[Rfam]
RNA sequence: UUCGUAAAUUUGAGGCCACAGCAGAAGUGCUCAUGGCAUGGCCCUGUCAGCCAAAGAAUCUAUAAAUUCUGCU
Numbered sequence: 001u002u003c004g005u006a007a008a009u010u011u012g013a014g015g016c017c018a019c020a021g022c023a024g025a026a027g028u029g030c031u032c033a034u035g036g037c038a039u040g041g042c043c044c045u046g047u048c049a050g051c052c053a054a055a056g057a058a059u060c061u062a063u064a065a066a067u068u069c070u071g072c073u
Base pairs, nucleotide, nucleotide: 012044014043015042016041017040020073021072022071023070024069025068026067027039028038029037049061050060051056
Mammalian CPEB3 ribozyme: a 73-nucleotide sequence from Alligator mississippiensis. It scores 37 bits against the family's covariance model. Lineage of the source: Eukaryota > Bilateria > Chordata > Gnathostomata > Alligator.